[Rfam]
RNA: Glycine riboswitch aptamer
RNA sequence: AUGAUUACAGGGGGAGAGAUUACUCAUCUAUGUAUGAUUAGUAACGCCGAAGGAGCAAGCAAUUUUGCGAAUCUCUCAGGCAAAAGAACUCUUGUAGGACG
Numbered sequence: 001a002u003g004a005u006u007a008c009a010g011g012g013g014g015a016g017a018g019a020u021u022a023c024u025c026a027u028c029u030a031u032g033u034a035u036g037a038u039u040a041g042u043a044a045c046g047c048c049g050a051a052g053g054a055g056c057a058a059g060c061a062a063u064u065u066u067g068c069g070a071a072u073c074u075c076u077c078a079g080g081c082a083a084a085a086g087a088a089c090u091c092u093u094g095u096a097g098g099a100c101g
Base pairs, nucleotide, nucleotide: 006096007095008094009093010092011091012090013089020044021043022042023041046081047080048079049077050076053075054074055073059068060067